The family of this 115-nucleotide RNA from Rubrobacter tropicus is "TPP riboswitch aptamer (THI element)".
Its family is annotated with thiamine pyrophosphate binding in the Gene Ontology.
The source organism's lineage runs through Bacteria, Rubrobacteria, Rubrobacterales, Rubrobacteraceae and Rubrobacter.

[Rfam]
RNA sequence: GACAAACAACCGGGGAGCCGCGAGGCUGAGAGGGCAAAAAGACCGAGAGGUUUGGAGCCGACCCGCUGAACCUGAUCCGGGUAAUGCCGGCGCAGGGAGAUAAGAGAGUCUCGUC
Numbered sequence: 001g002a003c004a005a006a007c008a009a010c011c012g013g014g015g016a017g018c019c020g021c022g023a024g025g026c027u028g029a030g031a032g033g034g035c036a037a038a039a040a041g042a043c044c045g046a047g048a049g050g051u052u053u054g055g056a057g058c059c060g061a062c063c064c065g066c067u068g069a070a071c072c073u074g075a076u077c078c079g080g081g082u083a084a085u086g087c088c089g090g091c092g093c094a095g096g097g098a099g100a101u102a103a104g105a106g107a108g109u110c111u112c113g114u115c
Stems, first nucleotide, its partner, number of pairs: 008101001010099001011065004017026003033059003071096004077090004